[Rfam]
RNA sequence: GCAUGAGUUUGGAUUUAUGACAGGCCUGUUCUCCUGGGCCUCUUGUGGUGCCCCCUGACAGAGCAAACCAUGGCCCUGAACCAUGGCCUGGCCUCUGUGCCUGUAGGCCACUGGCACUGAAGUGGGUUGCAUGGUG
Numbered sequence: 001g002c003a004u005g006a007g008u009u010u011g012g013a014u015u016u017a018u019g020a021c022a023g024g025c026c027u028g029u030u031c032u033c034c035u036g037g038g039c040c041u042c043u044u045g046u047g048g049u050g051c052c053c054c055c056u057g058a059c060a061g062a063g064c065a066a067a068c069c070a071u072g073g074c075c076c077u078g079a080a081c082c083a084u085g086g087c088c089u090g091g092c093c094u095c096u097g098u099g100c101c102u103g104u105a106g107g108c109c110a111c112u113g114g115c116a117c118u119g120a121a122g123u124g125g126g127u128u129g130c131a132u133g134g135u136g
Stems, first nucleotide, its partner, number of pairs: 002057002005053001007051002015048006022041003025037002071129006082119002087114002089110006
RNA: Small nucleolar RNA SNORA42/SNORA80 family
Organism: Microcebus murinus